[Rfam]
RNA: Bacterial RNase P class A
Organism: Cohnella candida
RNA sequence: AAAGUUUGACAGACAAUCGCCGGCGGCGAGAGCCGCGGGAGGAAAGUCCGGGCUCCGCAGGGCAGGAUGCUGGAUAACGUCCAGUCGGCGCGAGCCGAAGGAUAGUGCCACAGAAAUGGACCGCCGAUGACUGCUCCCCACUUGUGGGGAGCAGAACAGGUAAGGGUGGAACCGUGGUGUAAGAGACCACGAGGAGCAGGGGUGACUCUGAUCCUGGUAAACCCCAUCCGGAGCAAGACCUAAGAGAACGCGAGCGGCGGCGCAUGCCGGCCGCAAGCCCUUGCCCGGGGCGCGUUGGGUUGGUCGCUUGAGCCGUUCAGCAAUGGGCGGCCUAGAAAGAUGAUUGUCGCUUCAGUCCGUGGGAGGACGGCUCCGGCCGUCCGCGAUGACCACUUGAAGUACAGAACCCGGCUUACGGCAAACUUUCCGG
Dot-bracket structure: ((((((((.(.(((((((.((.(((((....))))).))....[[[.[[[[[((((...[[[[.((((((((((.....)))))(((((....)))).)((...(((((...........(((((..((...........................)))))..)).......((((((.......)))))).(((.(((((....))))).))).)))..)))))))))))))...((((......((((((.........................((((.]]]])))))))))).....))))......((((((((....))))))))..........)))))))..........................................................]]]]]]]]..).))))))))....